[Rfam]
RNA: Group II catalytic intron D1-D4-1
RNA sequence: UAACCUAUGUAGUAAUAUAUAGCUGAAUUAUCAGAAGUCAGCAGACGUCAUAGUACCUGAGUUAAUCGCGAUAACGAAGGGAAGGAC
Dot-bracket structure: ((..(((((((....))))))).))...........(((....)))(((......(((..(((.........)))..)))....)))
Numbered sequence: 001u002a003a004c005c006u007a008u009g010u011a012g013u014a015a016u017a018u019a020u021a022g023c024u025g026a027a028u029u030a031u032c033a034g035a036a037g038u039c040a041g042c043a044g045a046c047g048u049c050a051u052a053g054u055a056c057c058u059g060a061g062u063u064a065a066u067c068g069c070g071a072u073a074a075c076g077a078a079g080g081g082a083a084g085g086a087c
Stems, first nucleotide, its partner, number of pairs: 001025002005022007037046003047087003056080003061075003